Source information: Singlet oxygen resistance RNA X: a 74-nucleotide RNA sequence from Jannaschia seohaensis. The organism belongs to Jannaschia, within Bacteria. A reference for the family is Berghoff et al. (2009), "Photooxidative stress-induced and abundant small RNAs in Rhodobacter sphaeroides", Mol Microbiol. From the family's description: SorX (RSs2461)like SorY is a singlet oxygen induced sRNA that counteracts oxidative stress by targeting mRNA for a transporter in Rhodobacter. Rfam links the family to the GO term response to photooxidative stress. The family's RNA type in Rfam is small RNA.
RNA sequence: UACCGCGGCGUCCGCGGUCUAUCGGACGCAACCUCCCUGUUGGACUGGGCCGGACUUCGCGUCCGGCCUCUUUU
Numbered sequence: 001u002a003c004c005g006c007g008g009c010g011u012c013c014g015c016g017g018u019c020u021a022u023c024g025g026a027c028g029c030a031a032c033c034u035c036c037c038u039g040u041u042g043g044a045c046u047g048g049g050c051c052g053g054a055c056u057u058c059g060c061g062u063c064c065g066g067c068c069u070c071u072u073u074u
Base pairs, nucleotide, nucleotide: 008029009028010027011026012025013024014023048068049067050066051065052064053063054062055061
Dot-bracket structure: .......(((((((........)))))))..................((((((((.....))))))))......